RNA sequence: UCGUCUCUCAAGUUCUGGUGACGGCCCUCGGAAAACACCAGAACACUUUCACAGCCGGCUCUCGUAGCCGGCUUUUUUUU
Numbered sequence: 001u002c003g004u005c006u007c008u009c010a011a012g013u014u015c016u017g018g019u020g021a022c023g024g025c026c027c028u029c030g031g032a033a034a035a036c037a038c039c040a041g042a043a044c045a046c047u048u049u050c051a052c053a054g055c056c057g058g059c060u061c062u063c064g065u066a067g068c069c070g071g072c073u074u075u076u077u078u079u080u
Stems, first nucleotide, its partner, number of pairs: 012044008025031002051075001053073008

The record is an 80-nucleotide RNA sequence from Paraburkholderia ribeironis, which matches "Burkholderia sRNA 54" in Rfam. Rfam's curators write: Identified by RNA-seq, RACE and Northern blot. Strongly expressed in biofilm. Pairs were carried over by alignment from the consensus structure, which was predicted with RNAfold. By type it is a small RNA. Rfam links the family to the GO term bacterial biofilm matrix. The source organism's lineage runs through Bacteria, Pseudomonadota, Burkholderiales, Burkholderiaceae and Paraburkholderia.